[Rfam]
The family of this 65-nucleotide RNA sequence is "Plastid-clpP 5UTR RNA".
Rfam's curators write: Plastid clpP is a non-coding RNA (ncRNA) recognised in plastids. It was found in the prime untranslated region (5UTR) of a protease complex subunit (clpP) in plastids, suggesting a posible cis-regulatory function.
By type it is a cis-regulatory element.
The sequence is in the family's curated seed alignment.
RNA sequence: UUUUGUUCGUAGGAACAAAAAGAAGCAGAUCUAUUCUACACCCGAUAAGUACCAAUAUGCAAUGG
Numbered sequence: 001u002u003u004u005g006u007u008c009g010u011a012g013g014a015a016c017a018a019a020a021a022g023a024a025g026c027a028g029a030u031c032u033a034u035u036c037u038a039c040a041c042c043c044g045a046u047a048a049g050u051a052c053c054a055a056u057a058u059g060c061a062a063u064g065g
Base pairs, nucleotide, nucleotide: 001020002019004017005016006015007014008013042065043064049058050057051056